RNA sequence: CUUCACCGACCCCAGCCACAACGGCGACUGCCGGUCCUGACCGUAGGCCGCCAGCAGCGCCUGCGCCUC
Numbered sequence: 001c002u003u004c005a006c007c008g009a010c011c012c013c014a015g016c017c018a019c020a021a022c023g024g025c026g027a028c029u030g031c032c033g034g035u036c037c038u039g040a041c042c043g044u045a046g047g048c049c050g051c052c053a054g055c056a057g058c059g060c061c062u063g064c065g066c067c068u069c
Stems, first nucleotide, its partner, number of pairs: 015025003029065003032059002037054003041050001043048001
This 69-nucleotide RNA from Nonomuraea wenchangensis belongs to the Rfam family "ASpks TB sRNA".
The organism belongs to Nonomuraea, within Bacteria.
The literature on the family includes a 2009 paper in Mol Microbiol by Arnvig and Young, "Identification of small RNAs in Mycobacterium tuberculosis".
The match comes from Rfam's covariance-model search (69 bits).
The base pairs follow the family's consensus structure, which is taken from published work.